Rfam assigns this 84-nucleotide sequence from Pterocles burchelli to the family "mir-184 microRNA precursor family". A search with the family's covariance model found it, with a score of 78 bits. Gene Ontology terms of the family: gene silencing by miRNA and RISC complex.
[Rfam]
RNA sequence: CCAUUCUCAUCUCCUUAUCACUUUUCCAGCCCAGCUUCUGCUCUGUAACUGUUGGACGGAGAACUGAUAAGGGUAUGCGGGUGA
Numbered sequence: 001c002c003a004u005u006c007u008c009a010u011c012u013c014c015u016u017a018u019c020a021c022u023u024u025u026c027c028a029g030c031c032c033a034g035c036u037u038c039u040g041c042u043c044u045g046u047a048a049c050u051g052u053u054g055g056a057c058g059g060a061g062a063a064c065u066g067a068u069a070a071g072g073g074u075a076u077g078c079g080g081g082u083g084a
Stems, first nucleotide, its partner, number of pairs: 012073009022063006030055002
Dot-bracket structure: ...........(((((((((.((((((..((......................))..)))))).)))))))))...........